[Rfam]
RNA sequence: UUCGGUCCUCGGUAGUGGCCCCCGGAACCCGCCUCGAGCGGGAAGACCGUGAGCCUCGAUCGAAGACCGCC
Number, nucleotide and partner (000 for none) at each position: 001u000002u000003c069004g068005g067006u066007c065008c000009u063010c062011g061012g060013u059014a000015g000016u000017g055018g054019c053020c000021c051022c000023c049024g048025g047026a000027a000028c045029c000030c000031g000032c000033c000034u000035c000036g000037a000038g000039c000040g000041g000042g000043a000044a000045g028046a000047c025048c024049g023050u000051g021052a000053g019054c018055c017056u000057c000058g000059a013060u012061c011062g010063a009064a000065g007066a006067c005068c004069g003070c000071c000
Actino-pnp RNA: a 71-nucleotide RNA sequence from Oerskovia sp. Root918.
NCBI's taxonomy places the organism under Bacteria, Bacillati, Micrococcales, Cellulomonadaceae, Oerskovia.
A search with the family's covariance model found it, with a score of 53 bits.
By type it is a cis-regulatory element.